Source information:
U7 small nuclear RNA: a 68-nucleotide sequence from Chloropsis cyanopogon. The base pairs follow the family's consensus structure, which was predicted with PFOLD. Rfam's curators write: Animal histone pre-mRNAs are spliced by a different mechanism than nuclear pre-mRNAs and self-splicing introns. On this family, see Mowry and Steitz, Science 1987: "Identification of the human U7 snRNP as one of several factors involved in the 3' end maturation of histone premessenger RNA's".
[Rfam]
RNA sequence: AGUUGAUUUUUUUUCUUUUAAAAUUUGUCUAGAUGGUCUGUCCAGCCACUUUUGGGAACAAGACCUCC
Numbered sequence: 001a002g003u004u005g006a007u008u009u010u011u012u013u014u015c016u017u018u019u020a021a022a023a024u025u026u027g028u029c030u031a032g033a034u035g036g037u038c039u040g041u042c043c044a045g046c047c048a049c050u051u052u053u054g055g056g057a058a059c060a061a062g063a064c065c066u067c068c
Base pairs, nucleotide, nucleotide: 035065036064037063038062039061043056046055047054048053